[Rfam]
The record is a 96-nucleotide RNA from Jaculus jaculus, which matches "G-CSF factor stem-loop destabilising element (SLDE)" in Rfam. A reference for the family is Putland et al. (2002), "RNA destabilization by the granulocyte colony-stimulating factor stem-loop destabilizing element involves a single stem-loop that promotes deadenylation", Mol Cell Biol. About the family: This family represents the granulocyte colony-stimulating factor stem-loop destabilising element (G-CSF SLDE). G-CSF is secreted by fibroblasts and endothelial cells in response to the inflammatory mediators interleukin-1 (IL-1) and tumour necrosis factor alpha and by activated macrophages. The synthesis of G-CSF is regulated both transcriptionally and through control of mRNA stability.

RNA sequence: CUCAGGCGCCUACUACAGAGGCCUAGGGAGCAGCAGGAGGUUUCCCAUGUAGGAGACAAGACAUCCCUGUUUAAUAUUUAAACAGCAGUGUUCCCC
Numbered sequence: 001c002u003c004a005g006g007c008g009c010c011u012a013c014u015a016c017a018g019a020g021g022c023c024u025a026g027g028g029a030g031c032a033g034c035a036g037g038a039g040g041u042u043u044c045c046c047a048u049g050u051a052g053g054a055g056a057c058a059a060g061a062c063a064u065c066c067c068u069g070u071u072u073a074a075u076a077u078u079u080a081a082a083c084a085g086c087a088g089u090g091u092u093c094c095c096c
Base pairs, nucleotide, nucleotide: 004024005023006022007021010018011017034060040057041056042055043054044053045052067085068084069083070082071081072080073079074078